[Rfam]
RNA sequence: AUGAAGCUUCUUUGUUGGCAAAAAUCAAUCCAUGGUUCUUAAAAUCAAACAUGGAGAGAAGUGUGAGAGGGUUAAUUAGUUGGUACUAAUUAUGAUUAGUACUAAUUACAUCAUCCUUUACACUCUCCCUCCAUUUUUACAAAAACAGUUUGCUUUGUGCUUUAGCUAUUGGCUUCUCAUAUCAUAAAGGGAUGUGCUUUUUUCUGAGUAUCAGAAGCAAAUAAUUAAGCAUUUUUCUCUAUUGGAUCAGAAGCUUUGGUUAUAGUAUGGCAAACCGGCAAGUCACAAAAAGGCAAUGGAUUCCUUUUUGGAGUCUU
Numbered sequence: 001a002u003g004a005a006g007c008u009u010c011u012u013u014g015u016u017g018g019c020a021a022a023a024a025u026c027a028a029u030c031c032a033u034g035g036u037u038c039u040u041a042a043a044a045u046c047a048a049a050c051a052u053g054g055a056g057a058g059a060a061g062u063g064u065g066a067g068a069g070g071g072u073u074a075a076u077u078a079g080u081u082g083g084u085a086c087u088a089a090u091u092a093u094g095a096u097u098a099g100u101a102c103u104a105a106u107u108a109c110a111u112c113a114u115c116c117u118u119u120a121c122a123c124u125c126u127c128c129c130u131c132c133a134u135u136u137u138u139a140c141a142a143a144a145a146c147a148g149u150u151u152g153c154u155u156u157g158u159g160c161u162u163u164a165g166c167u168a169u170u171g172g173c174u175u176c177u178c179a180u181a182u183c184a185u186a187a188a189g190g191g192a193u194g195u196g197c198u199u200u201u202u203u204c205u206g207a208g209u210a211u212c213a214g215a216a217g218c219a220a221a222u223a224a225u226u227a228a229g230c231a232u233u234u235u236u237c238u239c240u241a242u243u244g245g246a247u248c249a250g251a252a253g254c255u256u257u258g259g260u261u262a263u264a265g266u267a268u269g270g271c272a273a274a275c276c277g278g279c280a281a282g283u284c285a286c287a288a289a290a291a292g293g294c295a296a297u298g299g300a301u302u303c304c305u306u307u308u309u310g311g312a313g314u315c316u317u
Stems, first nucleotide, its partner, number of pairs: 063131001148275006167265001299315005
RNA: Early nodulin 40
Organism: Vicia sativa